[Rfam]
RNA sequence: ACCCUGCUUUUCCUCCCUGAGCAGGGCCUUGUGCGAUGACAGUAACAAGGCUUCGGGCCCCGCGAGCGGGGCCCUUUUUCU
Numbered sequence: 001a002c003c004c005u006g007c008u009u010u011u012c013c014u015c016c017c018u019g020a021g022c023a024g025g026g027c028c029u030u031g032u033g034c035g036a037u038g039a040c041a042g043u044a045a046c047a048a049g050g051c052u053u054c055g056g057g058c059c060c061c062g063c064g065a066g067c068g069g070g071g072c073c074c075u076u077u078u079u080c081u
Stems, first nucleotide, its partner, number of pairs: 003025006026051007056073007
Burkholderia RNA 7 (anti-hemB): an 81-nucleotide RNA from Inhella crocodyli. The organism belongs to Inhella, within Bacteria. Its family is annotated with protein binding and bacterial biofilm matrix in the Gene Ontology. This RNA motif was identified by computational search in b-proteobacteria Burkholderia. Co-purified with Hfq, expression confirmed by Northern blot. The family's RNA type in Rfam is small RNA. A search with the family's covariance model found it, with a score of 54 bits.